Shown here is a 103-nucleotide RNA sequence from Candidatus Cryosericum terrychapinii, a member of the family "TPP riboswitch aptamer (THI element)".
RNA sequence: UAUGCUUCUAUGGGGUGCCCGAAAGGGCUGAGAGAGUCAUACGGCUCAACUCGUUGAACCUGAUCUGGGUAAUGCCAGCGUAGGGAGACAGAGCAGUAUCACG
Number, nucleotide and partner (000 for none) at each position: 001u000002a000003u000004g000005c000006u091007u090008c000009u088010a000011u053012g052013g051014g050015g000016u000017g028018c027019c026020c025021g000022a000023a000024a000025g020026g019027g018028c017029u000030g000031a000032g000033a000034g000035a046036g045037u044038c043039a000040u000041a000042c000043g038044g037045c036046u035047c000048a000049a000050c014051u013052c012053g011054u000055u000056g000057a000058a000059c084060c083061u082062g081063a000064u000065c078066u077067g076068g075069g000070u000071a000072a000073u000074g000075c068076c067077a066078g065079c000080g000081u062082a061083g060084g059085g000086a000087g000088a009089c000090a007091g006092a000093g000094c000095a000096g000097u000098a000099u000100c000101a000102c000103g000
Its family is annotated with thiamine pyrophosphate binding in the Gene Ontology. It scores 68 bits against the family's covariance model.